RNA sequence: AAAUACCCGGCGGGUGGUUCCUCCUCCCUCUGCCCGACGGGCGAAGCGGCCAGCAUUUCUCCGCUGGCCAAUAAAGGAAAAGGCCGGCACCUCCUCCCGCCGGCCUUUUUCUUU
Numbered sequence: 001a002a003a004u005a006c007c008c009g010g011c012g013g014g015u016g017g018u019u020c021c022u023c024c025u026c027c028c029u030c031u032g033c034c035c036g037a038c039g040g041g042c043g044a045a046g047c048g049g050c051c052a053g054c055a056u057u058u059c060u061c062c063g064c065u066g067g068c069c070a071a072u073a074a075a076g077g078a079a080a081a082g083g084c085c086g087g088c089a090c091c092u093c094c095u096c097c098c099g100c101c102g103g104c105c106u107u108u109u110u111c112u113u114u
Stems, first nucleotide, its partner, number of pairs: 007040003011036007048069007078109011
The family of this 114-nucleotide RNA sequence from Mesorhizobium sp. Root157 is "Alphaproteobacterial ar14". It is annotated as a small RNA. Taxonomically the source falls in Mesorhizobium (Bacteria, Pseudomonadati, Alphaproteobacteria, Hyphomicrobiales).